Annotation:
This 92-nucleotide RNA sequence from Prunus armeniaca belongs to the Rfam family "MIR6288 microRNA precursor family".
RNA sequence: CCAAAACUAACUACUUGUCAUUAUCUAAUUGGUUCUUAGUGUGUUAAAAUUUUAUAAGAACUAAUUAGAAAAUAACAAGUGUCUAGUUUUGA
Numbered sequence: 001c002c003a004a005a006a007c008u009a010a011c012u013a014c015u016u017g018u019c020a021u022u023a024u025c026u027a028a029u030u031g032g033u034u035c036u037u038a039g040u041g042u043g044u045u046a047a048a049a050u051u052u053u054a055u056a057a058g059a060a061c062u063a064a065u066u067a068g069a070a071a072a073u074a075a076c077a078a079g080u081g082u083c084u085a086g087u088u089u090u091g092a
Stems, first nucleotide, its partner, number of pairs: 002091008012081007020073003024069015